The family of this 222-nucleotide RNA from Chlorobium phaeobacteroides is "Group II catalytic intron D1-D4-6". It is one of the family's seed sequences. Group II introns are found in rRNA, tRNA and mRNA of organelles in fungi, plants and protists, and also in mRNA in bacteria. The pairing is the family consensus, mapped onto this sequence. NCBI's taxonomy places the organism under Bacteria, Chlorobiota, Chlorobiia, Chlorobium, Chlorobium phaeobacteroides.
RNA sequence: GAAGUUUCUUACAUGAAAGGCUUAGCCAGCCAUCAUGGCCCCGAGUCAUGCCUCGAUCGUCAGCAAUGGGAUGGGGAAGCGUUGACAGGGGAAAACACAGGCGUCCUAAUGAGCUCCGAAAACACCACGAAUCGCAGGCUGACCCUAUACUACGGAGGGGAAAGCAAUAUCGUCCAUCCCGAAAAGGCGAGGAAUGGGAGACUGCGGUGGAGUCAAAGAACG
Dot-bracket structure: ...........(((((..(((([.[[.)))).))))).((((..((((((((((.(((.(((....))))))))))...)).)))).))))..................((.((((((.............(((((((((..((((.........))))...)))....((.(((((.((......]].])).))))).))))))))))))))).)......